[Rfam]
Nucleotides: 074
Base pairs, nucleotide, nucleotide: 010025011024012023013022016065017064020061021060045055046054047053
Number, partner (000 for none) and nucleotide at each position: 001000u002000a003000a004000a005000a006000g007000a008000c009000a010025g011024g012023g013022a014000a015000u016065g017064a018000u019000u020061u021060c022013u023012c024011c025010c026000c027000u028000g029000g030000c031000a032000a033000u034000c035000c036000g037000c038000c039000u040000a041000a042000a043000c044000c045055g046054c047053u048000g049000u050000u051000u052000c053047a054046g055045c056000u057000g058000a059000u060021g061020a062000c063000u064017u065016c066000u067000a068000u069000g070000u071000g072000u073000u074000u